[Rfam]
RNA sequence: AUUUCUGAAUCGCUGAGUUCCCUUGCAGUCCAAGGGAAGCGGGGGAACCAAACAGAGCGGUGCGCAAGCGGUGUGAGAGCCGUCUGCCGUAGCCGCCAGGGGUGAAUCCCGGUACGGAAGAGCCAUGGAUGCUCCGUAUCGGGUAGGGCGACUCUCACCGCCCGAAUCCGUCAGCUAACCUCGUAAGCGUUGGGCGGCAACGAA
Numbered sequence: 001a002u003u004u005c006u007g008a009a010u011c012g013c014u015g016a017g018u019u020c021c022c023u024u025g026c027a028g029u030c031c032a033a034g035g036g037a038a039g040c041g042g043g044g045g046a047a048c049c050a051a052a053c054a055g056a057g058c059g060g061u062g063c064g065c066a067a068g069c070g071g072u073g074u075g076a077g078a079g080c081c082g083u084c085u086g087c088c089g090u091a092g093c094c095g096c097c098a099g100g101g102g103u104g105a106a107u108c109c110c111g112g113u114a115c116g117g118a119a120g121a122g123c124c125a126u127g128g129a130u131g132c133u134c135c136g137u138a139u140c141g142g143g144u145a146g147g148g149c150g151a152c153u154c155u156c157a158c159c160g161c162c163c164g165a166a167u168c169c170g171u172c173a174g175c176u177a178a179c180c181u182c183g184u185a186a187g188c189g190u191u192g193g194g195c196g197g198c199a200a201c202g203a204a
Stems, first nucleotide, its partner, number of pairs: 011189004018038008039184006049099001100169003108143011146163004
Shown here is a 204-nucleotide RNA from Paenibacillus hemerocallicola, a member of the family "c-di-AMP riboswitch aptamer (ydaO/yuaA leader)".
A search with the family's covariance model found it, with a score of 86 bits.